[Rfam]
RNA sequence: GGGGACCUUUGGGGCCCUAUACACCAGCGGUCUUAAUCGGCCGCGCUAAGCAAACGGAAGACAGAAA
Number, nucleotide and partner (000 for none) at each position: 001g017002g016003g015004g000005a000006c013007c012008u000009u000010u000011g000012g007013g006014g000015c003016c002017c001018u000019a000020u000021a000022c000023a000024c000025c000026a000027g044028c043029g042030g041031u040032c039033u000034u000035a000036a000037u000038c000039g032040g031041c030042c029043g028044c027045g000046c000047u000048a000049a000050g000051c000052a000053a000054a000055c000056g000057g000058a000059a000060g000061a000062c000063a000064g000065a000066a000067a000
Rfam assigns this 67-nucleotide RNA sequence to the family "L2-Alphaproteobacteria ribosomal protein leader". It is one of the family's seed sequences. On this family, see Eckert and Weinberg, BMC Microbiol 2020: "Discovery of 20 novel ribosomal leader candidates in bacteria and archaea".